Source information: The family of this 120-nucleotide sequence from Spirodela intermedia is "Small nucleolar RNA snoR104". By type it is an H/ACA-box small nucleolar RNA. On this family, see Marker et al., Curr Biol 2002: "Experimental RNomics: identification of 140 candidates for small non-messenger RNAs in the plant Arabidopsis thaliana". A search with the family's covariance model found it, with a score of 76 bits.
RNA sequence: GGGUGGCAUUCAACAGCACAGAUGCUAACCUGAUACGAUCUUCCUACAUCAAAACUUGUACUUUUCCUGCUUGUAGAACUACGAGGAGGUUCUGCGAGUCUCAUACUGCAAGACACUGAC
Number, nucleotide and partner (000 for none) at each position: 001g031002g030003g029004u000005g000006g025007c024008a023009u022010u021011c000012a000013a000014c000015a000016g000017c000018a000019c000020a000021g010022a009023u008024g007025c006026u000027a000028a000029c003030c002031u001032g000033a000034u000035a000036c000037g000038a000039u000040c000041u000042u000043c000044c000045u000046a000047c000048a000049u000050c000051a000052a000053a000054a000055c000056u113057u112058g000059u000060a000061c000062u000063u000064u000065u000066c000067c000068u000069g099070c098071u097072u096073g095074u094075a093076g092077a000078a090079c089080u088081a000082c000083g000084a000085g000086g000087a000088g080089g079090u078091u000092c076093u075094g074095c073096g072097a071098g070099u069100c000101u000102c000103a000104u000105a000106c000107u000108g000109c000110a000111a000112g057113a056114c000115a000116c000117u000118g000119a000120c000